Nucleotides: 236
Base pairs, nucleotide, nucleotide: 011035012034013033014032018030019029020028022205024203025202038086039085042083043082044081045080046078047077048073049072050071051070052069053068054067055066056065057064058063123230124228126227127226128225129224130223131222147221148220149219150218151217152216153179154178155177158173159172160171184215185214187213188212189211190210191209192208193207194206
Number, partner (000 for none) and nucleotide at each position: 001000g002000g003000a004000u005000u006000c007000c008000c009000g010000u011035c012034g013033a014032g015000u016000a017000a018030g019029a020028a021000c022205u023000a024203g025202c026000c027000a028020u029019u030018c031000g032014c033013u034012c035011g036000u037000a038086g039085c040000g041000a042083g043082u044081c045080u046078u047077g048073g049072a050071g051070g052069g053068c054067u055066a056065a057064a058063g059000g060000u061000a062000a063058c064057u065056u066055u067054a068053g069052u070051c071050u072049u073048u074000a075000a076000g077047c078046g079000u080045a081044g082043a083042c084000a085039g086038u087000u088000a089000g090000a091000u092000g093000g094000c095000g096000g097000g098000c099000c100000g101000a102000a103000a104000g105000c106000c107000a108000a109000g110000c111000g112000g113000u114000u115000g116000a117000a118000g119000g120000g121000a122000u123230u124228g125000a126227g127226c128225u129224c130223c131222a132000u133000a134000a135000u136000g137000u138000u139000a140000g141000u142000u143000a144000u145000u146000c147221g148220a149219g150218a151217g152216g153179g154178u155177u156000g157000a158173u159172g160171c161000c162000u163000u164000a165000a166000g167000c168000a169000u170000a171160g172159c173158a174000g175000a176000a177155a178154a179153c180000u181000a182000c183000a184215u185214u186000c187213u188212a189211u190210c191209c192208u193207u194206c195000g196000u197000a198000a199000a200000a201000g202025g203024c204000g205022a206194g207193a208192a209191g210190g211189a212188u213187a214185a215184g216152c217151c218150u219149c220148u221147c222131u223130g224129g225128a226127g227126u228124c229000a230123g231000a232000g233000a234000c235000c236000u
The family of this 236-nucleotide sequence from Anaerobacillus alkaliphilus is "Group II catalytic intron D1-D4-6". Group II introns are found in rRNA, tRNA and mRNA of organelles in fungi, plants and protists, and also in mRNA in bacteria. NCBI's taxonomy places the organism under Bacteria, Bacillati, Bacilli, Bacillaceae, Anaerobacillus. The match comes from Rfam's covariance-model search (152 bits). The literature on the family includes a 2001 paper in Trends Genet by Bonen and Vogel, "The ins and outs of group II introns".